This 508-nucleotide RNA from Corallococcus coralloides belongs to the Rfam family "Saccharopolyspora sRNA 350". Rfam links the family to the GO term regulation of secondary metabolite biosynthetic process. It scores 109 bits against the family's covariance model. Pairs were carried over by alignment from the consensus structure, which was predicted with RNAfold. The organism belongs to Corallococcus coralloides, within Bacteria. A reference for the family is Liu et al. (2013), "Prediction and characterization of small non-coding RNAs related to secondary metabolites in Saccharopolyspora erythraea", PLoS One.

[Rfam]
RNA sequence: UUGACGGUGAAGGUCCACACGUCGUUCGACUCCACCACCGCCUGGUCACCGAAGUGGUCGCCGUCCGCCAGCGUGUCCAGCACGACGGGGUCGCCGUACUUGCCGGCCGUCAGCUUCUGCGCCUUGCCGUGCGCCAGCAGGUAGACGUGCUCGGCGGACUUGCCCGCCUCCACGAUGGUGUCGCCCGCCCUGUAGUGCUGCUGGGCGAAGCGGCCCGCCAGGGUGCGGAUGAGCAGGUCAUCCACGUCCUGGAAGCCCCGCAUCAACGGCAGCUUGAGCAGCUCCUGGGGGAUGAUCUCCACCUUGGCGCCGAUGUUGCUGAAGUUCAGCCGGUCGUCGCCCACGGUGUACGUCAGCCGCCGGUUCACGCGGUACGUACCGCCGGACACCUGCACCCAGGGCAGGAUGCUCAGCAGGUAGCGGGGCGAGAUGCCCUGCAUCACCGGCUGCGUCUUCGUCGUCGUCGCGAGCUGGCGCGCACCCGCCGUGCUGAGGGUGGUGCCCUCGU
Numbered sequence: 001u002u003g004a005c006g007g008u009g010a011a012g013g014u015c016c017a018c019a020c021g022u023c024g025u026u027c028g029a030c031u032c033c034a035c036c037a038c039c040g041c042c043u044g045g046u047c048a049c050c051g052a053a054g055u056g057g058u059c060g061c062c063g064u065c066c067g068c069c070a071g072c073g074u075g076u077c078c079a080g081c082a083c084g085a086c087g088g089g090g091u092c093g094c095c096g097u098a099c100u101u102g103c104c105g106g107c108c109g110u111c112a113g114c115u116u117c118u119g120c121g122c123c124u125u126g127c128c129g130u131g132c133g134c135c136a137g138c139a140g141g142u143a144g145a146c147g148u149g150c151u152c153g154g155c156g157g158a159c160u161u162g163c164c165c166g167c168c169u170c171c172a173c174g175a176u177g178g179u180g181u182c183g184c185c186c187g188c189c190c191u192g193u194a195g196u197g198c199u200g201c202u203g204g205g206c207g208a209a210g211c212g213g214c215c216c217g218c219c220a221g222g223g224u225g226c227g228g229a230u231g232a233g234c235a236g237g238u239c240a241u242c243c244a245c246g247u248c249c250u251g252g253a254a255g256c257c258c259c260g261c262a263u264c265a266a267c268g269g270c271a272g273c274u275u276g277a278g279c280a281g282c283u284c285c286u287g288g289g290g291g292a293u294g295a296u297c298u299c300c301a302c303c304u305u306g307g308c309g310c311c312g313a314u315g316u317u318g319c320u321g322a323a324g325u326u327c328a329g330c331c332g333g334u335c336g337u338c339g340c341c342c343a344c345g346g347u348g349u350a351c352g353u354c355a356g357c358c359g360c361c362g363g364u365u366c367a368c369g370c371g372g373u374a375c376g377u378a379c380c381g382c383c384g385g386a387c388a389c390c391u392g393c394a395c396c397c398a399g400g401g402c403a404g405g406a407u408g409c410u411c412a413g414c415a416g417g418u419a420g421c422g423g424g425g426c427g428a429g430a431u432g433c434c435c436u437g438c439a440u441c442a443c444c445g446g447c448u449g450c451g452u453c454u455u456c457g458u459c460g461u462c463g464u465c466g467c468g469a470g471c472u473g474g475c476g477c478g479c480a481c482c483c484g485c486c487g488u489g490c491u492g493a494g495g496g497u498g499g500u501g502c503c504c505u506c507g508u
Stems, first nucleotide, its partner, number of pairs: 006396004011391002014388001021331001026328001028326003031322002036318002039315002042312001045311001047309001049307004055235001058232003061228004065109001067107002075103001077102001079100002082097003086093001116223003123217001126214002129211002132207004137202001138200003144196001149193002153189005159183001160178002165174002237302002245294004256288002260284001262283001264281001267276002335348004357385003361381003367377003397437007407427001409424003413421001443474004455469004475507002478502003482499005